RNA sequence: GCUGGUGGCGCUUGAUGACAGUUUUUUCCCCGUCAGAGCGGCAGUGUUGACUUCUCACUGCUAAAGCCAGGUCGUGUCUGAUGCACCAGU
Numbered sequence: 001g002c003u004g005g006u007g008g009c010g011c012u013u014g015a016u017g018a019c020a021g022u023u024u025u026u027u028c029c030c031c032g033u034c035a036g037a038g039c040g041g042c043a044g045u046g047u048u049g050a051c052u053u054c055u056c057a058c059u060g061c062u063a064a065a066g067c068c069a070g071g072u073c074g075u076g077u078c079u080g081a082u083g084c085a086c087c088a089g090u
Stems, first nucleotide, its partner, number of pairs: 001090007009083002
Background: The family of this 90-nucleotide RNA sequence from Eolophus roseicapilla is "Small nucleolar SNORD12/SNORD106". A search with the family's covariance model found it, with a score of 58 bits. The source organism's lineage runs through Eukaryota, Gnathostomata, Sauropsida, Neoaves and Eolophus. Gene Ontology terms of the family: nucleolus and RNA processing.